[Rfam]
RNA sequence: GCGCUAUCCCCGGGGGGCUGCACGCAAGCAGCUGAGAUAUGGCUGAUGCCAUGACCCGCUGAACCUGAUCCGGUUAGCGCCGGCGUAGGGAGGGAGGCGCGGGCCGCC
Numbered sequence: 001g002c003g004c005u006a007u008c009c010c011c012g013g014g015g016g017g018c019u020g021c022a023c024g025c026a027a028g029c030a031g032c033u034g035a036g037a038u039a040u041g042g043c044u045g046a047u048g049c050c051a052u053g054a055c056c057c058g059c060u061g062a063a064c065c066u067g068a069u070c071c072g073g074u075u076a077g078c079g080c081c082g083g084c085g086u087a088g089g090g091a092g093g094g095a096g097g098c099g100c101g102g103g104c105c106g107c108c
Stems, first nucleotide, its partner, number of pairs: 007095004011058004017032005039052005064089004070083004